[Rfam]
RNA sequence: AUGGAAGAUUUCUGGCAGGAAUCCAUACAUGGGUCUUGAAAUGCAUGGAAAAUUGGAGGGGGUUGGGUCACUCACACCCUGCUCCAAAUUCAUCUGUUUUUCCGUGUGUUUAGCCAUCAGUCCCUACAUUGAGAGGAGGAGCUCUUGGUUAAUGCAUGGAGAACCGGCAAGUCACAAAACGGCAUUGAGGAACUCUGAUAUGGGUCCU
Numbered sequence: 001a002u003g004g005a006a007g008a009u010u011u012c013u014g015g016c017a018g019g020a021a022u023c024c025a026u027a028c029a030u031g032g033g034u035c036u037u038g039a040a041a042u043g044c045a046u047g048g049a050a051a052a053u054u055g056g057a058g059g060g061g062g063u064u065g066g067g068u069c070a071c072u073c074a075c076a077c078c079c080u081g082c083u084c085c086a087a088a089u090u091c092a093u094c095u096g097u098u099u100u101u102c103c104g105u106g107u108g109u110u111u112a113g114c115c116a117u118c119a120g121u122c123c124c125u126a127c128a129u130u131g132a133g134a135g136g137a138g139g140a141g142c143u144c145u146u147g148g149u150u151a152a153u154g155c156a157u158g159g160a161g162a163a164c165c166g167g168c169a170a171g172u173c174a175c176a177a178a179a180c181g182g183c184a185u186u187g188a189g190g191a192a193c194u195c196u197g198a199u200a201u202g203g204g205u206c207c208u
Base pairs, nucleotide, nucleotide: 055085056084057083096164097163098162099161100160101159115154116153117152192205193204194203195202